[Rfam]
Notes: Group II catalytic intron D1-D4-2: a 112-nucleotide RNA. From the family's description: Group II introns are found in rRNA, tRNA and mRNA of organelles in fungi, plants and protists, and also in mRNA in bacteria.

RNA sequence: GAUGGAGCCUUCGGAGUCUCCAUCCAGGUUGUAAUUUCAAACUACAUUAAGGUGCUGUAGUUAAAAGCUAGGGUAUUGAGCGUAAAGAAAAGGGCGUCAAGAACUGUCAAGU
Number, nucleotide and partner (000 for none) at each position: 001g012002a011003u000004g009005g000006a000007g000008c000009c004010u000011u002012c001013g038014g037015a036016g035017u034018c000019u000020c031021c000022a029023u028024c000025c000026a000027g000028g023029u022030u000031g020032u000033a000034a017035u016036u015037u014038c013039a000040a000041a000042c000043u111044a000045c087046a000047u086048u085049a000050a083051g077052g076053u000054g074055c073056u072057g000058u070059a069060g068061u067062u000063a000064a000065a000066a000067g061068c060069u059070a058071g000072g056073g055074u054075a000076u052077u051078g000079a000080g000081c000082g000083u050084a000085a048086a047087g045088a000089a000090a000091a000092g108093g107094g000095c000096g104097u103098c000099a000100a000101g000102a000103a097104c096105u000106g000107u093108c092109a000110a000111g043112u000
Description:
A reference for the family is Bonen and Vogel (2001), "The ins and outs of group II introns", Trends Genet. The family has 144 seed sequences and 1,231 matches in Rfam 15.1.